[Rfam]
RNA sequence: CAUAUGCAGCAUAUGUAUAUGCAGAUGCAUAUGCAUAUGCAGCAUAUGCAUAUGCAGCAUAUGCAUAUGCAGCAUAUGCAUAUGCAGCAUAUGCUUAUGCUGCAUAUGCAUAUGCAGCAUAUGCAUAUGCUGCAUAUGCAUAUGCUGCAUAUGCAUAUGCUGCAUAUGCAUAUGCUGCAUAUGCAUAUGCUGCAUAUGCAUAUGCUGCAUAUGCAUAUGCAUCUGCAUAUACAUAUGCUGCAUAUGCAUAUGCUGCAUAUGCAU
Numbered sequence: 001c002a003u004a005u006g007c008a009g010c011a012u013a014u015g016u017a018u019a020u021g022c023a024g025a026u027g028c029a030u031a032u033g034c035a036u037a038u039g040c041a042g043c044a045u046a047u048g049c050a051u052a053u054g055c056a057g058c059a060u061a062u063g064c065a066u067a068u069g070c071a072g073c074a075u076a077u078g079c080a081u082a083u084g085c086a087g088c089a090u091a092u093g094c095u096u097a098u099g100c101u102g103c104a105u106a107u108g109c110a111u112a113u114g115c116a117g118c119a120u121a122u123g124c125a126u127a128u129g130c131u132g133c134a135u136a137u138g139c140a141u142a143u144g145c146u147g148c149a150u151a152u153g154c155a156u157a158u159g160c161u162g163c164a165u166a167u168g169c170a171u172a173u174g175c176u177g178c179a180u181a182u183g184c185a186u187a188u189g190c191u192g193c194a195u196a197u198g199c200a201u202a203u204g205c206u207g208c209a210u211a212u213g214c215a216u217a218u219g220c221a222u223c224u225g226c227a228u229a230u231a232c233a234u235a236u237g238c239u240g241c242a243u244a245u246g247c248a249u250a251u252g253c254u255g256c257a258u259a260u261g262c263a264u
Stems, first nucleotide, its partner, number of pairs: 006256005012250002014246004020242004024223008034213007057070005071101005079093003083089002102205002105202008114193006121186004126181005132139002144175002153169007229236002
Dot-bracket structure: .....(((((.((((((..((((((((((((..(((((((................(((((....)))))(((((...(((.((...)).)))...)))))((.((((((((.((((((.((((.(((((.((....))....((.......(((((((...)))))))....)).))))).)))).)))))).)))))))).)).)))))))..)))))))).....((....))..))))))))..)).)))))........
RNA: isrG Hfq binding RNA
Organism: Paulinella micropora